RNA sequence: AGCCCGCACUAAUCCAUGCGUACUCGCCCACACAAGGGCCGCCCUCCCGGGGGCGGCAAGUAUUCAGCGCGAGUGGGAAAUUCGGUGGUUUACCCCGUCCCGCCCCCCACAGUUCGCCGUGGGGGGUCGUAACCGCCGGCGUGCGACAGCCCGCUGUUGCCCGCCGGCUCCUCCUGAGAGGUCUUCUGGGCGUGAAAGCGCCGGGCAGUUCCACAAGAAAUUACUGCUGGGCCUCCCCUACUCGUGGGGAGGGGCCCGGCAAUGGGAGCGUUCUGCGGACGAUUGGCCCGGCGACCCCCCCGCGGGCCGCCGGACUGUUGAGUGCAAUGCAUGGAUCCCAGCCGCCCGGCUGGGAAACUCGAUACCGAUCAUUAUGCCGGCU
Numbered sequence: 001a002g003c004c005c006g007c008a009c010u011a012a013u014c015c016a017u018g019c020g021u022a023c024u025c026g027c028c029c030a031c032a033c034a035a036g037g038g039c040c041g042c043c044c045u046c047c048c049g050g051g052g053g054c055g056g057c058a059a060g061u062a063u064u065c066a067g068c069g070c071g072a073g074u075g076g077g078a079a080a081u082u083c084g085g086u087g088g089u090u091u092a093c094c095c096c097g098u099c100c101c102g103c104c105c106c107c108c109a110c111a112g113u114u115c116g117c118c119g120u121g122g123g124g125g126g127u128c129g130u131a132a133c134c135g136c137c138g139g140c141g142u143g144c145g146a147c148a149g150c151c152c153g154c155u156g157u158u159g160c161c162c163g164c165c166g167g168c169u170c171c172u173c174c175u176g177a178g179a180g181g182u183c184u185u186c187u188g189g190g191c192g193u194g195a196a197a198g199c200g201c202c203g204g205g206c207a208g209u210u211c212c213a214c215a216a217g218a219a220a221u222u223a224c225u226g227c228u229g230g231g232c233c234u235c236c237c238c239u240a241c242u243c244g245u246g247g248g249g250a251g252g253g254g255c256c257c258g259g260c261a262a263u264g265g266g267a268g269c270g271u272u273c274u275g276c277g278g279a280c281g282a283u284u285g286g287c288c289c290g291g292c293g294a295c296c297c298c299c300c301c302g303c304g305g306g307c308c309g310c311c312g313g314a315c316u317g318u319u320g321a322g323u324g325c326a327a328u329g330c331a332u333g334g335a336u337c338c339c340a341g342c343c344g345c346c347c348g349g350c351u352g353g354g355a356a357a358c359u360c361g362a363u364a365c366c367g368a369u370c371a372u373u374a375u376g377c378c379g380g381c382u
Stems, first nucleotide, its partner, number of pairs: 001382004010376002015334001022074005038057007083367005097280004170181004189202005205276004211270001225261003336355007

A member of the RNA family "Nuclear RNase P" from Pichia membranifaciens, 382 nucleotides long. Taxonomically the source falls in Pichia (Eukaryota, Opisthokonta, Dikarya, Pichiales). It is annotated as a ribozyme. Its Rfam clan is "RNaseP clan".